[Rfam]
RNA sequence: CAAUUAAGACGAAACUGGUUUUCACAAUGAACUGACAGAUAGAUAUAUAAUUCUGAGAUCAUUGUGAAAGCUGAUUUCGUUCA
Dot-bracket structure: ........((((((.((((((((((..(((.((......................)).)))..)))))))))).))))))...
RNA: bantam microRNA precursor family